[Rfam]
RNA sequence: GGAGUGGUGACCGAGAGGCCGAAGGUGUGCGCUUGGAAAGCGUAUGUACCCUAACCGGGUACCGAGGGUUCAAAUCCCUCCCGCUCCG
Numbered sequence: 001g002g003a004g005u006g007g008u009g010a011c012c013g014a015g016a017g018g019c020c021g022a023a024g025g026u027g028u029g030c031g032c033u034u035g036g037a038a039a040g041c042g043u044a045u046g047u048a049c050c051c052u053a054a055c056c057g058g059g060u061a062c063c064g065a066g067g068g069u070u071c072a073a074a075u076c077c078c079u080c081c082c083g084c085u086c087c088g
Stems, first nucleotide, its partner, number of pairs: 001087007010026003028044005064080005
This 88-nucleotide RNA sequence from spirochete symbiont of Stewartia floridana belongs to the Rfam family "tRNA". Rfam's curators write: Transfer RNA (tRNA) molecules are approximately 80 nucleotides in length. Pairs were carried over by alignment from the consensus structure, which is taken from published work. It scores 50 bits against the family's covariance model. By type it is a transfer RNA.